The record is a 74-nucleotide RNA from Danio rerio, which matches "mir-196 microRNA precursor family" in Rfam. The family has 84 seed sequences and 1,813 matches in Rfam 15.1. The organism belongs to Danio, within Eukaryota. For this family Rfam cites "New microRNAs from mouse and human" (Lagos-Quintana et al., RNA, 2003).
RNA sequence: CGAGUGGUUUAGGUAGUUUCAUGUUGUUGGGAUUACAUUCAAACUCUGCAACGUGAAACUGUCUUAAUUGCCCC
Numbered sequence: 001c002g003a004g005u006g007g008u009u010u011a012g013g014u015a016g017u018u019u020c021a022u023g024u025u026g027u028u029g030g031g032a033u034u035a036c037a038u039u040c041a042a043a044c045u046c047u048g049c050a051a052c053g054u055g056a057a058a059c060u061g062u063c064u065u066a067a068u069u070g071c072c073c074c
Stems, first nucleotide, its partner, number of pairs: 004071006011064009022053006029046003
Source information:
The family's consensus secondary structure was predicted with PFOLD.